This 67-nucleotide RNA from Bombyx mori belongs to the Rfam family "mir-2774 microRNA precursor family".
It scores 76 bits against the family's covariance model.
A reference for the family is Liu et al. (2010), "MicroRNAs of Bombyx mori identified by Solexa sequencing", BMC Genomics.
RNA sequence: ACAACAGUCGGACCGUCGGUCUACCGAGCAAUAUUAUCCGCUCGGUGGAAGAUCUUUCCUCCAUAGU
Numbered sequence: 001a002c003a004a005c006a007g008u009c010g011g012a013c014c015g016u017c018g019g020u021c022u023a024c025c026g027a028g029c030a031a032u033a034u035u036a037u038c039c040g041c042u043c044g045g046u047g048g049a050a051g052a053u054c055u056u057u058c059c060u061c062c063a064u065a066g067u
Stems, first nucleotide, its partner, number of pairs: 004064001010058003015053003020049010